[Rfam]
RNA: L31-Actinobacteria ribosomal protein leader
RNA sequence: GCGGUACCGGUUCCCGGCGGGCGUCACGCCCGGCGACCCGGCGACC
Numbered sequence: 001g002c003g004g005u006a007c008c009g010g011u012u013c014c015c016g017g018c019g020g021g022c023g024u025c026a027c028g029c030c031c032g033g034c035g036a037c038c039c040g041g042c043g044a045c046c
Base pairs, nucleotide, nucleotide: 003046004045005044007041008040009039010038015035016034018032019031020030021029022028023027